About this RNA
The record is a 76-nucleotide sequence, which matches "dfrA-dnaX RNA" in Rfam.
RNA sequence: AUGCAUUAUAAUAAGUAUAUUCAUAUUUCACCAUAGUUACAUUAGUUUAGUUAUCAAAUGGGAACUAUGGUACGGU
Numbered sequence: 001a002u003g004c005a006u007u008a009u010a011a012u013a014a015g016u017a018u019a020u021u022c023a024u025a026u027u028u029c030a031c032c033a034u035a036g037u038u039a040c041a042u043u044a045g046u047u048u049a050g051u052u053a054u055c056a057a058a059u060g061g062g063a064a065c066u067a068u069g070g071u072a073c074g075g076u
Stems, first nucleotide, its partner, number of pairs: 030071008